RNA Staph. aureus E (RoxS): a 111-nucleotide RNA sequence from Jeotgalibacillus soli. Rfam classes the family as a small RNA. From the family's description: It was shown to be regulated by the presence of nitric oxide (NO). In Bacillus subtilis it controls expression of genes with functions related to oxidative stress and oxidation-reduction reactions and it was renamed RoxS (for related to oxidative stress). NCBI's taxonomy places the organism under Bacteria, Bacillati, Bacillota, Bacilli, Jeotgalibacillus. A reference for the family is Geissmann et al. (2009), "A search for small noncoding RNAs in Staphylococcus aureus reveals a conserved sequence motif for regulation", Nucleic Acids Res.
RNA sequence: GUGAAGUUGAUCACAAACAAACAUAUACCCCUUUGUUUGACCGUGAAAAAUUUCUCCCAUCCCCUUUGUUCGUAAGGAAAAGCCCUUAUCACUAGUUGAUAAGGGCUUUUU
Numbered sequence: 001g002u003g004a005a006g007u008u009g010a011u012c013a014c015a016a017a018c019a020a021a022c023a024u025a026u027a028c029c030c031c032u033u034u035g036u037u038u039g040a041c042c043g044u045g046a047a048a049a050a051u052u053u054c055u056c057c058c059a060u061c062c063c064c065u066u067u068g069u070u071c072g073u074a075a076g077g078a079a080a081a082g083c084c085c086u087u088a089u090c091a092c093u094a095g096u097u098g099a100u101a102a103g104g105g106c107u108u109u110u111u
Stems, first nucleotide, its partner, number of pairs: 003054006011046004018039006080108011
A search with the family's covariance model found it, with a score of 104 bits.